RNA sequence: AUCUCUUUGCCUUUUGGCUUAGAUCAAGUGUAGUAUCUGUUCUUUUCAGUGUAACAGCUGAAAUGACCUCAAUGAGGCUCAUUACCUUACGUUUUGUUACAACACAUUUUUUGGAAACUUUUAUUUCGGGUUUAGAGAGAUUGUUACUUAUUUGAUUUUCUGAGAUUAUGCACUUCAUUGGGUAUAGUCUUCUCCCU
Numbered sequence: 001a002u003c004u005c006u007u008u009g010c011c012u013u014u015u016g017g018c019u020u021a022g023a024u025c026a027a028g029u030g031u032a033g034u035a036u037c038u039g040u041u042c043u044u045u046u047c048a049g050u051g052u053a054a055c056a057g058c059u060g061a062a063a064u065g066a067c068c069u070c071a072a073u074g075a076g077g078c079u080c081a082u083u084a085c086c087u088u089a090c091g092u093u094u095u096g097u098u099a100c101a102a103c104a105c106a107u108u109u110u111u112u113g114g115a116a117a118c119u120u121u122u123a124u125u126u127c128g129g130g131u132u133u134a135g136a137g138a139g140a141u142u143g144u145u146a147c148u149u150a151u152u153u154g155a156u157u158u159u160c161u162g163a164g165a166u167u168a169u170g171c172a173c174u175u176c177a178u179u180g181g182g183u184a185u186a187g188u189c190u191u192c193u194c195c196c197u
Base pairs, nucleotide, nucleotide: 004023005022006021009018010017011016044063045062046061047060048059049058065080066079067077068076069075070074111150113148114147116145117144118143123141124140125139126138127137154189155188156187157186161182164179165178166177
Rfam assigns this 197-nucleotide RNA from Vanderwaltozyma polyspora to the family "U2 spliceosomal RNA". Gene Ontology terms of the family: mRNA branch site recognition, pre-mRNA branch point binding and U2 snRNP. For this family Rfam cites "Crystal structure of a model branchpoint-U2 snRNA duplex containing bulged adenosines" (Berglund et al., RNA, 2001). Pairs were carried over by alignment from the consensus structure, which is taken from published work. The family has 208 seed sequences and 71,512 matches in Rfam 15.1. The sequence is in the family's curated seed alignment. U2 is a small nuclear RNA (snRNA) component of the spliceosome (involved in pre-mRNA splicing). Complementary binding between U2 snRNA (in an area lying towards the 5' end but 3' to hairpin I) and the branchpoint sequence (BPS) of the intron results the bulging out of an unpaired adenosine, on the BPS, which initiates a nucleophilic attack at the intronic 5' splice site, thus starting the first of two transesterification reactions that mediate splicing. Rfam classes the family as a spliceosomal small nuclear RNA.